RNA: Plastid-psbA-1 3UTR RNA
RNA sequence: UUGAUCCACUUGGCUACAUCCGCCAUAUACUCUCAAAAAUUUUAGUUGUGUAAGUAAAAAACUAUAAAAACUAAAUGAAGGAGCAAUACCCAAGUUCUUAUUCUAUCAAGAGGGUGGGUAUUGCUCCUUC
Numbered sequence: 001u002u003g004a005u006c007c008a009c010u011u012g013g014c015u016a017c018a019u020c021c022g023c024c025a026u027a028u029a030c031u032c033u034c035a036a037a038a039a040u041u042u043u044a045g046u047u048g049u050g051u052a053a054g055u056a057a058a059a060a061a062c063u064a065u066a067a068a069a070a071c072u073a074a075a076u077g078a079a080g081g082a083g084c085a086a087u088a089c090c091c092a093a094g095u096u097c098u099u100a101u102u103c104u105a106u107c108a109a110g111a112g113g114g115u116g117g118g119u120a121u122u123g124c125u126c127c128u129u130c
Stems, first nucleotide, its partner, number of pairs: 001036003077130013091116002095112005